[Rfam]
RNA sequence: UAAGGCUGAGGUAGUAGAUUGAAUAGUUGUGGGGUUUAAGUCCUCCUUUUGAGAUAACUAUACAAUCUACUGUCUUUCCCGA
Numbered sequence: 001u002a003a004g005g006c007u008g009a010g011g012u013a014g015u016a017g018a019u020u021g022a023a024u025a026g027u028u029g030u031g032g033g034g035u036u037u038a039a040g041u042c043c044u045c046c047u048u049u050u051g052a053g054a055u056a057a058c059u060a061u062a063c064a065a066u067c068u069a070c071u072g073u074c075u076u077u078c079c080c081g082a
Base pairs, nucleotide, nucleotide: 001082004079005078008076009075010074011073012072013071014070015069016068017067018066019065020064021063023061024060025059026058027057032044033043034042046053047052
A member of the RNA family "let-7 microRNA precursor family" from Salarias fasciatus, 82 nucleotides long. The literature on the family includes a 2001 paper in Nat Rev Genet by Rougvie, "Control of developmental timing in animals". NCBI's taxonomy places the organism under Eukaryota, Teleostei, Blenniimorphae, Salariinae, Salarias. From the family's description: This family represents the microRNAs (miRNA) let-7 and mir-98. let-7 was identified from a study of developmental timing in C. elegans, and was later shown to be part of a much larger class of non-coding RNAs termed miRNAs. Gene Ontology terms of the family: miRNA-mediated post-transcriptional gene silencing and RISC complex.